[Rfam]
RNA sequence: CCGGCCCUUUCCGCCGUCUCGCAAACGGGCGCUGGCUUCGGGAAAGGAUGUCCCAUGGCCGUAUAUGCAGGCACACCAUAGCGCUUGCUAUCGCAACAUUAUCGCCAGCGGUGCUGCUGUGAUGCGGUCUUCGCAUGGACCGCGCAAUGAACAGACGAUACUUCUGUAUCGUGCUGAUUGUUUCUGCCGCCUUGUUUUUUCGCACCGACAGCGAACGGAGUCACUCCGUCAGCGCUGUUAGCGUGAUAAGCAACGCGCAGGGCAAGUAAGCCAGGAUGCCGCCCUUCGGGCGGCUUUCCUC
Dot-bracket structure: ......((((((.((((.......))))((....))....))))))...........(.(.......(((((.(......).)))))..((((((.((.(((((....))))).)).))))))(((((((......)))))))(((((.(....(((((((....)))))))..).)))))....).)((.(((((....................((((...))))..............(((........))).....)))))))......(((.(((((((...))))))).).))..
Rfam assigns this 301-nucleotide sequence from Kluyvera genomosp. 3 to the family "ryfA RNA". Rfam describes the family as follows. This family consists of a number of bacterial RNA genes of 305 bases in length. The ryfA RNA gene is present in E. coli, Shigella flexneri and Salmonella species where it is found between the ydaN and dbpA genes. The function of this RNA is unknown. NCBI's taxonomy places the organism under Bacteria, Pseudomonadati, Pseudomonadota, Enterobacterales, Kluyvera. The match comes from Rfam's covariance-model search (257 bits).